[Rfam]
RNA: Saccharopolyspora sRNA 350
Organism: Allonocardiopsis opalescens
RNA sequence: UGGAUGGUGAAGUCCCAGUCGCCCGGCUCGCCGCCGAGCAGCCCCGCCCCGAAGUACUCGCCGCCCGCCAUCACGUCGAGCACGGUGUCGUCGCCGUACUCGCCGCGGCCGAUCUUGUUCACCUUGCCGUGCGCGAUCAGGUAGAGCGCGUCGGCCGGCCGGCCGACCGCGACCACGGUCUCACCGGGACCGUACUCGCGCUGCUCGAAGCGCUCGGCCAGCGCGCCGAGCGCCGCGGCGCCGGUGAAGCCGCGCAGCUGCGGCAGCUCGCACAGCUCCUCGGGCACCACCCGCACCUCGGCGCCGGUGUUGGUGAAACUGACGCGUCCGUCGCCGACGGCGUAGCUGAGCCGCCGGUUCACCCGGUAGGCGCCACCCGACGCCUCCACCCAGGGCAGCAUCCGCAGCAGCCACCGGGAGGUGAUGCCCUGCAUCUGCGGGACCGACUUGGUGGUGGUGGCCAGUUUGCGGGCCGCGGUGGUGGCGAGGCUGAGCCG
Numbered sequence: 001u002g003g004a005u006g007g008u009g010a011a012g013u014c015c016c017a018g019u020c021g022c023c024c025g026g027c028u029c030g031c032c033g034c035c036g037a038g039c040a041g042c043c044c045c046g047c048c049c050c051g052a053a054g055u056a057c058u059c060g061c062c063g064c065c066c067g068c069c070a071u072c073a074c075g076u077c078g079a080g081c082a083c084g085g086u087g088u089c090g091u092c093g094c095c096g097u098a099c100u101c102g103c104c105g106c107g108g109c110c111g112a113u114c115u116u117g118u119u120c121a122c123c124u125u126g127c128c129g130u131g132c133g134c135g136a137u138c139a140g141g142u143a144g145a146g147c148g149c150g151u152c153g154g155c156c157g158g159c160c161g162g163c164c165g166a167c168c169g170c171g172a173c174c175a176c177g178g179u180c181u182c183a184c185c186g187g188g189a190c191c192g193u194a195c196u197c198g199c200g201c202u203g204c205u206c207g208a209a210g211c212g213c214u215c216g217g218c219c220a221g222c223g224c225g226c227c228g229a230g231c232g233c234c235g236c237g238g239c240g241c242c243g244g245u246g247a248a249g250c251c252g253c254g255c256a257g258c259u260g261c262g263g264c265a266g267c268u269c270g271c272a273c274a275g276c277u278c279c280u281c282g283g284g285c286a287c288c289a290c291c292c293g294c295a296c297c298u299c300g301g302c303g304c305c306g307g308u309g310u311u312g313g314u315g316a317a318a319c320u321g322a323c324g325c326g327u328c329c330g331u332c333g334c335c336g337a338c339g340g341c342g343u344a345g346c347u348g349a350g351c352c353g354c355c356g357g358u359u360c361a362c363c364c365g366g367u368a369g370g371c372g373c374c375a376c377c378c379g380a381c382g383c384c385u386c387c388a389c390c391c392a393g394g395g396c397a398g399c400a401u402c403c404g405c406a407g408c409a410g411c412c413a414c415c416g417g418g419a420g421g422u423g424a425u426g427c428c429c430u431g432c433a434u435c436u437g438c439g440g441g442a443c444c445g446a447c448u449u450g451g452u453g454g455u456g457g458u459g460g461c462c463a464g465u466u467u468g469c470g471g472g473c474c475g476c477g478g479u480g481g482u483g484g485c486g487a488g489g490c491u492g493a494g495c496c497g
Stems, first nucleotide, its partner, number of pairs: 006390004011385002014382001018328001021325002024321003028316002035313001037311004042306001046304002049301004054233002057230004062225003065111001067109002075103001077102004082097005117222003122217002126213002130209001131206001133204003140197001143196002149192002155188002157185002160178001165174001235296001237294001240291001243288003250283003254279001256277003260271003329342004351379001353377001356374002360372001362370002391431007399423003403418001405416001407415001437476004443470001446467001448464005488495001